A member of the RNA family "Group II catalytic intron D1-D4-6", 224 nucleotides long.
Rfam 15.1 lists 1,617 matches to the family in 661 species.
About the family: Group II introns are found in rRNA, tRNA and mRNA of organelles in fungi, plants and protists, and also in mRNA in bacteria.
Rfam's curators put it in the seed alignment.
[Rfam]
RNA sequence: CAAGUCCAGCCCGGUCAAAGCCGUAGCGGGCAGGCCGGUAACGAGUGUUGCCAUUCGCUGGGCGACCGGCGGGUGCGAAGCGUACACAGUGAGGAAGCAGGCCGUGAGGAUCAGUUCCGAAAUCGGAUAUCGUCGCGAUCGCCGACACCGUAACCCUGGUGGAAGGCAGCAUCCUGGCAACCGACAAGCGCGAGGUUGCCCGGAGUCGCCGGAAUCCCUAGCCC
Numbered sequence: 001c002a003a004g005u006c007c008a009g010c011c012c013g014g015u016c017a018a019a020g021c022c023g024u025a026g027c028g029g030g031c032a033g034g035c036c037g038g039u040a041a042c043g044a045g046u047g048u049u050g051c052c053a054u055u056c057g058c059u060g061g062g063c064g065a066c067c068g069g070c071g072g073g074u075g076c077g078a079a080g081c082g083u084a085c086a087c088a089g090u091g092a093g094g095a096a097g098c099a100g101g102c103c104g105u106g107a108g109g110a111u112c113a114g115u116u117c118c119g120a121a122a123u124c125g126g127a128u129a130u131c132g133u134c135g136c137g138a139u140c141g142c143c144g145a146c147a148c149c150g151u152a153a154c155c156c157u158g159g160u161g162g163a164a165g166g167c168a169g170c171a172u173c174c175u176g177g178c179a180a181c182c183g184a185c186a187a188g189c190g191c192g193a194g195g196u197u198g199c200c201c202g203g204a205g206u207c208g209c210c211g212g213a214a215u216c217c218c219u220a221g222c223c224c
Stems, first nucleotide, its partner, number of pairs: 012037005020031003024193001026191002039092001041090002045087004049082002051077001052075010114215006135209005141167003146161004172204003176200007